[Rfam]
RNA sequence: AUACUUACCUGGACGGGGUCAAUGGGUGAACAAGAAGGCCCAUGGCCUGGGUCAGGGGCCCUCAUUGCACGUGGAGGGAGCCCUGGCCUACCAUCUCCCCAAGUGGGAGAGUGGACGUCAUAAUUUGUGGUAGAGGGGGAUUCGCGUUCGCGCGGCCCCUGC
Numbered sequence: 001a002u003a004c005u006u007a008c009c010u011g012g013a014c015g016g017g018g019u020c021a022a023u024g025g026g027u028g029a030a031c032a033a034g035a036a037g038g039c040c041c042a043u044g045g046c047c048u049g050g051g052u053c054a055g056g057g058g059c060c061c062u063c064a065u066u067g068c069a070c071g072u073g074g075a076g077g078g079a080g081c082c083c084u085g086g087c088c089u090a091c092c093a094u095c096u097c098c099c100c101a102a103g104u105g106g107g108a109g110a111g112u113g114g115a116c117g118u119c120a121u122a123a124u125u126u127g128u129g130g131u132a133g134a135g136g137g138g139g140a141u142u143c144g145c146g147u148u149c150g151c152g153c154g155g156c157c158c159c160u161g162c
Stems, first nucleotide, its partner, number of pairs: 012119004016048006023042005049088002053085001055082002059078005091114003094110003098106002136160004143154004

The record is a 162-nucleotide RNA sequence from Phoenix dactylifera, which matches "U1 spliceosomal RNA" in Rfam. For this family Rfam cites "Saccharomyces cerevisiae U1 small nuclear RNA secondary structure contains both universal and yeast-specific domains" (Kretzner et al., Proc Natl Acad Sci U S A, 1990). Lineage of the source: Eukaryota > Streptophyta > Tracheophyta > Liliopsida > Phoenix. Pairs were carried over by alignment from the consensus structure, which is taken from published work.